[Rfam]
RNA sequence: GCCGGUCCUCGGUAGUGGUUCCCGGGAGCACAGCGCUUUCCCGGGGACUUCGAUCGAAGACCGGC
Numbered sequence: 001g002c003c004g005g006u007c008c009u010c011g012g013u014a015g016u017g018g019u020u021c022c023c024g025g026g027a028g029c030a031c032a033g034c035g036c037u038u039u040c041c042c043g044g045g046g047a048c049u050u051c052g053a054u055c056g057a058a059g060a061c062c063g064g065c
Stems, first nucleotide, its partner, number of pairs: 001065007009057005017049011028036002

This 65-nucleotide RNA from Amycolatopsis sp. YIM 10 belongs to the Rfam family "Actino-pnp RNA".